[Rfam]
RNA sequence: UUCUUAUCACGAGAGGUCGAGGGAAUGGCCCGAAGACGCCUCAGCAACCUUCAAUGUUUUGUAUUGAAAAGGUGCUAAUUCCAGCAAGCUAUUUUUAGUAGCUUGGAAGAUAAGAA
Number, nucleotide and partner (000 for none) at each position: 001u116002u115003c114004u113005u112006a111007u110008c109009a000010c000011g000012a000013g042014a041015g040016g039017u038018c000019g000020a000021g031022g030023g029024a000025a000026u083027g082028g081029c023030c022031c021032g000033a000034a000035g000036a000037c000038g017039c016040c015041u014042c013043a076044g075045c074046a073047a000048c072049c071050u068051u067052c066053a065054a064055u063056g000057u000058u000059u000060u000061g000062u000063a055064u054065u053066g052067a051068a050069a000070a000071g049072g048073u046074g045075c044076u043077a000078a000079u000080u108081c028082c027083a026084g000085c105086a104087a103088g102089c101090u100091a099092u098093u000094u000095u000096u000097a000098g092099u091100a090101g089102c088103u087104u086105g085106g000107a000108a080109g008110a007111u006112a005113a004114g003115a002116a001
Rfam assigns this 116-nucleotide RNA sequence from Heyndrickxia ginsengihumi to the family "SAM riboswitch aptamer (S box leader)". It scores 97 bits against the family's covariance model.